[Rfam]
RNA sequence: AUUGAAUAUGGGCAAAAUUCUCCGAAAGGGAAUGACGCAAAGCCAUGGGUCUACAGUCUCGAACGUCAUAGGGACCAUGACUGCCAGGUUGCUGAU
Numbered sequence: 001a002u003u004g005a006a007u008a009u010g011g012g013c014a015a016a017a018u019u020c021u022c023c024g025a026a027a028g029g030g031a032a033u034g035a036c037g038c039a040a041a042g043c044c045a046u047g048g049g050u051c052u053a054c055a056g057u058c059u060c061g062a063a064c065g066u067c068a069u070a071g072g073g074a075c076c077a078u079g080a081c082u083g084c085c086a087g088g089u090u091g092c093u094g095a096u
Stems, first nucleotide, its partner, number of pairs: 012038002017033004022029002041090004046086003049081003056075004
A member of the RNA family "c-di-GMP-I riboswitch aptamer" from Paenibacillus stellifer, 96 nucleotides long. A search with the family's covariance model found it, with a score of 69 bits.